[Rfam]
The family of this 31-nucleotide RNA sequence from Apteryx australis is "Iron response element II". Rfam describes the family as follows. IRE, TFRC, SLC40A1, SDHB, SLC11A2, CDC42BPA, ACO2, ALAS2_H.SAPIENS, CDC14A, EPAS1, ALAS2, qoxD, Hao1, NDUFS1, transferrin, Aconitate. It scores 30 bits against the family's covariance model. The organism belongs to Apteryx, within Eukaryota.
RNA sequence: GCAUUUUCUGAAACAGUGCUUUCUAAAAUAC
Numbered sequence: 001g002c003a004u005u006u007u008c009u010g011a012a013a014c015a016g017u018g019c020u021u022u023c024u025a026a027a028a029u030a031c
Stems, first nucleotide, its partner, number of pairs: 001031001003029005010023004014018001

Rfam links the family to the GO term response to iron ion. The family's RNA type in Rfam is cis-regulatory element.